[Rfam]
RNA sequence: AUGCAAUGAUGAGUGAAGUAUAGUCUGACCUGGUAUUGCCGUUGCAUUAGCAUUGGCUUUGACCAGGGUAUGAUCCUUUAAUCUUCUCUCUGAGCUG
Numbered sequence: 001a002u003g004c005a006a007u008g009a010u011g012a013g014u015g016a017a018g019u020a021u022a023g024u025c026u027g028a029c030c031u032g033g034u035a036u037u038g039c040c041g042u043u044g045c046a047u048u049a050g051c052a053u054u055g056g057c058u059u060u061g062a063c064c065a066g067g068g069u070a071u072g073a074u075c076c077u078u079u080a081a082u083c084u085u086c087u088c089u090c091u092g093a094g095c096u097g
Stems, first nucleotide, its partner, number of pairs: 001096001003095002038057004
Dot-bracket structure: (.((.................................((((............))))....................................))).
RNA: Z30 small nucleolar RNA